[Rfam]
c-di-AMP riboswitch aptamer (ydaO/yuaA leader): a 151-nucleotide RNA from Blastococcus saxobsidens. Its family is annotated with cyclic-di-AMP binding and regulation of gene expression in the Gene Ontology. The organism belongs to Blastococcus, within Bacteria.

RNA sequence: GGUCGGACGCCGCCGAGUCGCCCUCCAGGGCGAGCCGGGGACCCAUCGCAGUACUGGGGUGAAUCCAGUCCCGGGCGUGAGCCCGGGGCCGGUAGGGCUGCUUCCCGCCCGAAUCCGUCAGCUAACUCGGUAGGCGGCAACGGAAGAACGG
Numbered sequence: 001g002g003u004c005g006g007a008c009g010c011c012g013c014c015g016a017g018u019c020g021c022c023c024u025c026c027a028g029g030g031c032g033a034g035c036c037g038g039g040g041a042c043c044c045a046u047c048g049c050a051g052u053a054c055u056g057g058g059g060u061g062a063a064u065c066c067a068g069u070c071c072c073g074g075g076c077g078u079g080a081g082c083c084c085g086g087g088g089c090c091g092g093u094a095g096g097g098c099u100g101c102u103u104c105c106c107g108c109c110c111g112a113a114u115c116c117g118u119c120a121g122c123u124a125a126c127u128c129g130g131u132a133g134g135c136g137g138c139a140a141c142g143g144a145a146g147a148a149c150g151g
Base pairs, nucleotide, nucleotide: 011136012135013134014133018033019032020031021030022029034131035130036129037128038127039126044056045055057116058115059114065092066091068089069088070087071086072085073084074083075082076081095110096109097108098107